[Rfam]
RNA sequence: UAAAGACGGUGCUUACCUCAACAACGUCUUUGAAAGUGGGCAUUCAAAGACAGUGUUGAUGUAAGCACCGUCUUAGAAUGUUGACAUUCAAAGACGGUGUUGAGGUAAGCACCGUCCUU
Numbered sequence: 001u002a003a004a005g006a007c008g009g010u011g012c013u014u015a016c017c018u019c020a021a022c023a024a025c026g027u028c029u030u031u032g033a034a035a036g037u038g039g040g041c042a043u044u045c046a047a048a049g050a051c052a053g054u055g056u057u058g059a060u061g062u063a064a065g066c067a068c069c070g071u072c073u074u075a076g077a078a079u080g081u082u083g084a085c086a087u088u089c090a091a092a093g094a095c096g097g098u099g100u101u102g103a104g105g106u107a108a109g110c111a112c113c114g115u116c117c118u119u
Base pairs, nucleotide, nucleotide: 005116006115007114009112010111011110012109013108014107015106016105017104018103019102020101022099023098025096026095027094028093029092030091031090032089033088034087036085037084039082041080042079043078044077045076047074048073049072050071051070054067055066056065057064
RNA: MIR4374 microRNA precursor family
Organism: Glycine max